[Rfam]
RNA sequence: UCAUACCGGCAGGCGGCACCUCCUCCCGCUUCCUUCCGGGCAGCAGCCGGCACCUCCUCCCGCCGGCUCGUGACAGGAAAAGGCCGGCACCUCCUCCCGCCGGCCUUUUUCUUU
Numbered sequence: 001u002c003a004u005a006c007c008g009g010c011a012g013g014c015g016g017c018a019c020c021u022c023c024u025c026c027c028g029c030u031u032c033c034u035u036c037c038g039g040g041c042a043g044c045a046g047c048c049g050g051c052a053c054c055u056c057c058u059c060c061c062g063c064c065g066g067c068u069c070g071u072g073a074c075a076g077g078a079a080a081a082g083g084c085c086g087g088c089a090c091c092u093c094c095u096c097c098c099g100c101c102g103g104c105c106u107u108u109u110u111c112u113u114u
Stems, first nucleotide, its partner, number of pairs: 007038003011034003015030003045068006078109011
Dot-bracket structure: ......(((.(((.(((..........))).))).)))......((((((............)))))).........(((((((((((..........))))))))))).....
Rfam assigns this 114-nucleotide RNA from Mesorhizobium sp. YM1C-6-2 to the family "Alphaproteobacterial ar14". The source organism's lineage runs through Bacteria, Pseudomonadati, Pseudomonadota, Phyllobacteriaceae and Mesorhizobium. Smr14C2 was renamed NfeR1 (Nodule Formation Efficiency RNA) highly expressed in salt stress and during the symbiotic interaction on legume roots. The literature on the family includes a 2012 paper in RNA Biol by del Val et al., "A survey of sRNA families in alpha-proteobacteria".